[Rfam]
RNA: c-di-GMP-I riboswitch aptamer
Organism: Paenibacillus sambharensis
RNA sequence: AAUCGACAAAGGCAAACCGCCCGAAAGGACGGGACGCAAAGCUAAGGGUCUACGGCUCAAACUGAGCUAUGAUCGCCUGGCUGCCGAG
Number, nucleotide and partner (000 for none) at each position: 001a000002a000003u000004c000005g000006a000007c000008a000009a000010a000011g000012g037013c036014a000015a000016a000017c032018c031019g030020c000021c028022c027023g000024a000025a000026a000027g022028g021029a000030c019031g018032g017033g000034a000035c000036g013037c012038a000039a000040a082041g081042c080043u079044a000045a078046g077047g076048g073049u072050c071051u000052a000053c000054g000055g067056c066057u065058c064059a000060a000061a000062c000063u000064g058065a057066g056067c055068u000069a000070u000071g050072a049073u048074c000075g000076c047077c046078u045079g043080g042081c041082u040083g000084c000085c000086g000087a000088g000